[Rfam]
RNA sequence: CUGGGAUGAUGUAACUUAGCCAAAUCAGACAUUGAUGUGCUCCUUGAGGUGUUUCCUUCAAGGUUUUUCUCAUUGUCAUUUGGAGGCUGUUUUGUUAUCUCUGCUUACGCGUACUUCCUCAAGCCUUGAAUGGGACCCUUUGGUAGAAGCGCAUCUAUCUGACGAUAAAAAUAGAGAUUGGUUCCUAGCUGACCAGG
Numbered sequence: 001c002u003g004g005g006a007u008g009a010u011g012u013a014a015c016u017u018a019g020c021c022a023a024a025u026c027a028g029a030c031a032u033u034g035a036u037g038u039g040c041u042c043c044u045u046g047a048g049g050u051g052u053u054u055c056c057u058u059c060a061a062g063g064u065u066u067u068u069c070u071c072a073u074u075g076u077c078a079u080u081u082g083g084a085g086g087c088u089g090u091u092u093u094g095u096u097a098u099c100u101c102u103g104c105u106u107a108c109g110c111g112u113a114c115u116u117c118c119u120c121a122a123g124c125c126u127u128g129a130a131u132g133g134g135a136c137c138c139u140u141u142g143g144u145a146g147a148a149g150c151g152c153a154u155c156u157a158u159c160u161g162a163c164g165a166u167a168a169a170a171a172u173a174g175a176g177a178u179u180g181g182u183u184c185c186u187a188g189c190u191g192a193c194c195a196g197g
Stems, first nucleotide, its partner, number of pairs: 001196004
Description:
The family of this 197-nucleotide RNA sequence from Olea europaea is "small nucleolar RNA snoR127". The family's consensus secondary structure was predicted with RNAalifold. The family's RNA type in Rfam is C/D-box small nucleolar RNA. For this family Rfam cites "Mining small RNA sequencing data: a new approach to identify small nucleolar RNAs in Arabidopsis" (Chen and Wu, Nucleic Acids Res, 2009).